Shown here is a 76-nucleotide RNA sequence from Rhodnius prolixus, a member of the family "mir-9/mir-79 microRNA precursor family". Its family is annotated with RISC complex and miRNA-mediated post-transcriptional gene silencing in the Gene Ontology. For this family Rfam cites "Identification of novel genes coding for small expressed RNAs" (Lagos-Quintana et al., Science, 2001). Taxonomically the source falls in Rhodnius (Eukaryota, Mandibulata, Allotriocarida, Neoheteroptera). The match comes from Rfam's covariance-model search (64 bits).
RNA sequence: UUCUAUUCUUCUUUGGUGAUCUAACUGUAUGAAGUUUACUGAAUUCAUAAAGCUAGGUCAGCGAAGGAGAAUGGUU
Numbered sequence: 001u002u003c004u005a006u007u008c009u010u011c012u013u014u015g016g017u018g019a020u021c022u023a024a025c026u027g028u029a030u031g032a033a034g035u036u037u038a039c040u041g042a043a044u045u046c047a048u049a050a051a052g053c054u055a056g057g058u059c060a061g062c063g064a065a066g067g068a069g070a071a072u073g074g075u076u
Stems, first nucleotide, its partner, number of pairs: 003074003007070009017060007025052002028049006